About this RNA
Shown here is a 46-nucleotide RNA sequence from Neorhodopirellula pilleata, a member of the family "Acido-Lenti-1 RNA". The match comes from Rfam's covariance-model search (45 bits).

[Rfam]
RNA sequence: CCCCAUGCUGACGCAUGGGGCUACAUGCUGUCGCGGCUCCGCCGCU
Numbered sequence: 001c002c003c004c005a006u007g008c009u010g011a012c013g014c015a016u017g018g019g020g021c022u023a024c025a026u027g028c029u030g031u032c033g034c035g036g037c038u039c040c041g042c043c044g045c046u
Base pairs, nucleotide, nucleotide: 001020002019003018004017005016006015007014008013033045034044035043036042037041
Annotation
Pairs were carried over by alignment from the consensus structure, which is taken from published work. It is annotated as a small RNA.